About this RNA
A member of the RNA family "mraW RNA" from Saccharothrix tamanrassetensis, 114 nucleotides long. A search with the family's covariance model found it, with a score of 64 bits. It is annotated as a cis-regulatory element.

RNA sequence: GAGGUUUCGGGUGCCGUGAGGCCUCGGUCCGCUCGGCUUUCGGCCCUGGCGCACCUUCCCCGGCGCCAGGUCCGACGGGCGGGCGGGGACCUGACGACACCCGAAUCGCUUCAU
Dot-bracket structure: .........((((.((...((.(((.((((((((.....((((.((((((((..........)))))))).)))).)))))))).))).))...)).)))).............